[Rfam]
RNA: ctRNA
RNA sequence: AGGAAGGCUUCCACGACUUCGGUCGCUUGGGGGCCUUUUUCUUUUGC
Number, nucleotide and partner (000 for none) at each position: 001a000002g000003g000004a000005a036006g035007g034008c033009u032010u031011c030012c029013a000014c000015g027016a000017c025018u000019u000020c000021g000022g000023u000024c000025g017026c000027u015028u000029g012030g011031g010032g009033g008034c007035c006036u005037u000038u000039u000040u000041c000042u000043u000044u000045u000046g000047c000